eL15-Euryarchaeota ribosomal protein leader: a 52-nucleotide sequence. The sequence is in the family's curated seed alignment. A reference for the family is Eckert and Weinberg (2020), "Discovery of 20 novel ribosomal leader candidates in bacteria and archaea", BMC Microbiol. By type it is a cis-regulatory leader.
RNA sequence: CGGGAGCUUUCCCGUUAAGGAAUGUGGCUUCAUUGGCAAGCCGAACCUGGAG
Numbered sequence: 001c002g003g004g005a006g007c008u009u010u011c012c013c014g015u016u017a018a019g020g021a022a023u024g025u026g027g028c029u030u031c032a033u034u035g036g037c038a039a040g041c042c043g044a045a046c047c048u049g050g051a052g
Stems, first nucleotide, its partner, number of pairs: 001014005018048003026042005